[Rfam]
RNA sequence: CUCCGCGAAAUCUAUUUAGGUAGAGCGUCGACCGAAUACCCCCGGGGGUAGAGCACUGGAUGGGCUAUGGGGACUCACCGUCUUACUGAUCCUAACCAAACUCCGAAUACCGGGGAGUACUAGUCGGCAGACACACGGCGGGUGCUAACGUCCGUCGUGGAGAGGGCAACAACCCUGACCACCAUCUAAGGUCCCUAAGUUAUGGCUAAGUGGGAAAGGAUGUGAGGAUCCCAAAACAACCAGGAUGUUGGCUUAGAAGCAGCCAUCAUUUAAAGAAAGCGUAACAGCUCACUGGUCUAAAUAAGGGUCUUUGCGCCGAAAAUGUACCGGGGCUCAAGCCAUACACCGAAGCUGUGGAUGCACGUAUGUGCGUGGUAGCGGAGCGUUCCGUAAGCCUGUGAAGGGACAGUCGUGAGACAUCCUGGAGGUAUCGGAAGUGAGAAU
Numbered sequence: 001c002u003c004c005g006c007g008a009a010a011u012c013u014a015u016u017u018a019g020g021u022a023g024a025g026c027g028u029c030g031a032c033c034g035a036a037u038a039c040c041c042c043c044g045g046g047g048g049u050a051g052a053g054c055a056c057u058g059g060a061u062g063g064g065c066u067a068u069g070g071g072g073a074c075u076c077a078c079c080g081u082c083u084u085a086c087u088g089a090u091c092c093u094a095a096c097c098a099a100a101c102u103c104c105g106a107a108u109a110c111c112g113g114g115g116a117g118u119a120c121u122a123g124u125c126g127g128c129a130g131a132c133a134c135a136c137g138g139c140g141g142g143u144g145c146u147a148a149c150g151u152c153c154g155u156c157g158u159g160g161a162g163a164g165g166g167c168a169a170c171a172a173c174c175c176u177g178a179c180c181a182c183c184a185u186c187u188a189a190g191g192u193c194c195c196u197a198a199g200u201u202a203u204g205g206c207u208a209a210g211u212g213g214g215a216a217a218g219g220a221u222g223u224g225a226g227g228a229u230c231c232c233a234a235a236a237c238a239a240c241c242a243g244g245a246u247g248u249u250g251g252c253u254u255a256g257a258a259g260c261a262g263c264c265a266u267c268a269u270u271u272a273a274a275g276a277a278a279g280c281g282u283a284a285c286a287g288c289u290c291a292c293u294g295g296u297c298u299a300a301a302u303a304a305g306g307g308u309c310u311u312u313g314c315g316c317c318g319a320a321a322a323u324g325u326a327c328c329g330g331g332g333c334u335c336a337a338g339c340c341a342u343a344c345a346c347c348g349a350a351g352c353u354g355u356g357g358a359u360g361c362a363c364g365u366a367u368g369u370g371c372g373u374g375g376u377a378g379c380g381g382a383g384c385g386u387u388c389c390g391u392a393a394g395c396c397u398g399u400g401a402a403g404g405g406a407c408a409g410u411c412g413u414g415a416g417a418c419a420u421c422c423u424g425g426a427g428g429u430a431u432c433g434g435a436a437g438u439g440a441g442a443a444u
Base pairs, nucleotide, nucleotide: 001383002382003381004380005379006378011024012023013022014021015020026130027128028127029126030125031124032123036121037119038118039117040115041114042113043112044111045110051104052102053101057098058097059096061094062093063092064091069086070084071083072082073081074080134159135158136157137156138155139154140153141152142151143150164175165174166173179357180356181355182354184353186351190347191346192345199344201343202342203341204340205339206338218317219316222314223313224312225311226310227309228308229307230306231305239296240295241294242293243292245269246268247267250264251263252262270274275290279288280287358373359372360371361370362369363368384439386436387435388434389433390432394429395428396427403423404422405421406420409418410417411416